[Rfam]
Shown here is a 131-nucleotide RNA from Megalops atlanticus, a member of the family "Small nucleolar RNA SNORA68". From the family's description: U68 is a member of the H/ACA class of small nucleolar RNAs (snoRNAs) which act as guides in the the modification of uridines to pseudouridines. A search with the family's covariance model found it, with a score of 74 bits. Lineage of the source: Eukaryota > Bilateria > Teleostomi > Neopterygii > Megalops.
RNA sequence: UACGCACACAAACCCAAAGGACAUUAUAAACCUGUGUAAUGCUCUUGUCAUGUGUGCGCAAAUCAAAAAAGCACCUUGUCGCCUUUCAUAAGCUGCUGUGCCAGUGGAAGUGAAAUCAGGGUUCAACACCA
Numbered sequence: 001u002a003c004g005c006a007c008a009c010a011a012a013c014c015c016a017a018a019g020g021a022c023a024u025u026a027u028a029a030a031c032c033u034g035u036g037u038a039a040u041g042c043u044c045u046u047g048u049c050a051u052g053u054g055u056g057c058g059c060a061a062a063u064c065a066a067a068a069a070a071g072c073a074c075c076u077u078g079u080c081g082c083c084u085u086u087c088a089u090a091a092g093c094u095g096c097u098g099u100g101c102c103a104g105u106g107g108a109a110g111u112g113a114a115a116u117c118a119g120g121g122u123u124c125a126a127c128a129c130c131a
Base pairs, nucleotide, nucleotide: 003058004057005056006055007054008053009052019044020043022041023040024039025038026037027036028035071124073122074121075120076119077118083110084109085108086107087106088105089104092101093100